A member of the RNA family "EFASI RNA" from Citrobacter sp. KTE151, 149 nucleotides long.

RNA sequence: UCAACUCGGUAUCGAUGGCGGCACUACGAAAGUAGCGCCGGAGGCAGCUGAACUAGCGUCAGCUCUGCAUUAGCAGCAAACAGGUCAGCGACCUGGGGUGCCUCGCAAGAACUCAACAUUCAGCCAUCCCGAUGCACAGAUACCAGUUG
Numbered sequence: 001u002c003a004a005c006u007c008g009g010u011a012u013c014g015a016u017g018g019c020g021g022c023a024c025u026a027c028g029a030a031a032g033u034a035g036c037g038c039c040g041g042a043g044g045c046a047g048c049u050g051a052a053c054u055a056g057c058g059u060c061a062g063c064u065c066u067g068c069a070u071u072a073g074c075a076g077c078a079a080a081c082a083g084g085u086c087a088g089c090g091a092c093c094u095g096g097g098g099u100g101c102c103u104c105g106c107a108a109g110a111a112c113u114c115a116a117c118a119u120u121c122a123g124c125c126a127u128c129c130c131g132a133u134g135c136a137c138a139g140a141u142a143c144c145a146g147u148u149g
Base pairs, nucleotide, nucleotide: 002149003148004147005146008144009143010142011141012140013139019040020039021038022037024035025034026033041104042103043102044101049061050060052059053058081096082094083093084092085091086090